[Rfam]
RNA sequence: AUCACCUGGAAAUCUGGUUAAAAUGCAGAUUCUGAUUCAGCAAGUUUGGAAUAAAAUCUGGGUCUGCAUUUCUAACAAGAUCCCAGGUGAUGCCUG
Numbered sequence: 001a002u003c004a005c006c007u008g009g010a011a012a013u014c015u016g017g018u019u020a021a022a023a024u025g026c027a028g029a030u031u032c033u034g035a036u037u038c039a040g041c042a043a044g045u046u047u048g049g050a051a052u053a054a055a056a057u058c059u060g061g062g063u064c065u066g067c068a069u070u071u072c073u074a075a076c077a078a079g080a081u082c083c084c085a086g087g088u089g090a091u092g093c094c095u096g
Base pairs, nucleotide, nucleotide: 003089004088005087009083011081014079015078017076018075019074020073021071022070023069025067026066027065028064029063031061032060
Dot-bracket structure: ..(((...(.(..((.(((((((.(((((.((...........................)).))))).))).)))).)).).)...))).......
A member of the RNA family "mir-544 microRNA precursor family" from Nomascus leucogenys, 96 nucleotides long. It scores 67 bits against the family's covariance model. Gene Ontology terms of the family: RISC complex and miRNA-mediated post-transcriptional gene silencing.